Bacterial RNase P class B: a 370-nucleotide sequence from Leuconostoc lactis.
The family is grouped with related families in Rfam's "RNaseP clan".
A reference for the family is Brown (1999), "The Ribonuclease P Database", Nucleic Acids Res.
Taxonomically the source falls in Leuconostoc (Bacteria, Bacillota, Bacilli, Lactobacillaceae).
A search with the family's covariance model found it, with a score of 291 bits.
The base pairs follow the family's consensus structure, which is taken from published work.

RNA sequence: AGCAUUGGGUAAUUGCGCGUUAUAUUUCUAACGUGAGGAAGGUCCAUGCUCGCACAACCUGUGAUGGUUGUAGUGUUUGUGCUGGGAUAAAGAAUAAACCCAGGGGCAGUAAUGUCACGGCGGUCGAACAGGCUAAGGCUUAGGCUAUGUCUUAAUAGGCUCGAAGGUGCCAUAGAAACGUAUACGUUAGUGAAAGCUAGCGUUUGAGACGAGGUAAACCCCGCAAGCGGGCAACCCAAACUUUUGGUAGGGGCGGCUAAUCUAGCGAACUGAAGCGAUGGUUGGUAUGGUUUGGCGACAAACUUAGAUAGAUGAUUACCGAAGGUGAUAUGUACCUGCAUAUCACUGGAACAAAACAUGGCCUAUAGAU
Number, nucleotide and partner (000 for none) at each position: 001a000002g000003c000004a370005u369006u368007g366008g320009g319010u318011a317012a316013u315014u314015g000016c035017g034018c033019g032020u031021u030022a000023u000024a000025u000026u000027u000028c000029u000030a021031a020032c019033g018034u017035g016036a000037g000038g000039a000040a364041g363042g362043u000044c361045c360046a359047u358048g357049c231050u230051c229052g228053c227054a071055c070056a069057a068058c067059c066060u000061g000062u000063g000064a000065u000066g059067g058068u057069u056070g055071u054072a000073g000074u000075g000076u000077u226078u225079g224080u223081g222082c103083u102084g101085g100086g099087a000088u000089a000090a000091a000092g000093a000094a000095u000096a000097a000098a000099c086100c085101c084102a083103g082104g118105g116106g115107c114108a113109g000110u000111a000112a000113u108114g107115u106116c105117a000118c104119g221120g220121c000122g161123g160124u159125c158126g000127a000128a000129c000130a152131g151132g150133c149134u000135a000136a000137g146138g145139c144140u000141u000142a000143g000144g139145c138146u137147a000148u000149g133150u132151c131152u130153u000154a000155a000156u000157a000158g125159g124160c123161u122162c000163g000164a000165a000166g000167g219168u218169g215170c214171c213172a000173u000174a000175g000176a000177a000178a000179c000180g000181u000182a000183u000184a203185c202186g201187u200188u199189a198190g197191u196192g000193a000194a000195a000196g191197c190198u189199a188200g187201c186202g185203u184204u000205u000206g000207a000208g000209a000210c000211g000212a000213g171214g170215u169216a000217a000218a168219c167220c120221c119222c081223g080224c079225a078226a077227g053228c052229g051230g050231g049232c000233a000234a000235c252236c251237c250238a000239a000240a000241c000242u000243u000244u000245u000246g000247g000248u000249a000250g237251g236252g235253g000254c000255g000256g286257c285258u284259a283260a282261u281262c280263u000264a000265g000266c000267g000268a000269a000270c000271u000272g000273a000274a000275g000276c000277g000278a000279u000280g262281g261282u260283u259284g258285g257286u256287a305288u000289g303290g000291u301292u300293u000294g000295g000296c000297g000298a000299c000300a292301a291302a000303c289304u000305u287306a000307g000308a000309u000310a000311g000312a000313u000314g014315a013316u012317u011318a010319c009320c008321g000322a000323a000324g347325g346326u345327g344328a343329u342330a341331u340332g339333u000334a000335c000336c000337u000338g000339c332340a331341u330342a329343u328344c327345a326346c325347u324348g000349g000350a000351a000352c000353a000354a000355a000356a000357c048358a047359u046360g045361g044362c042363c041364u040365a000366u007367a000368g006369a005370u004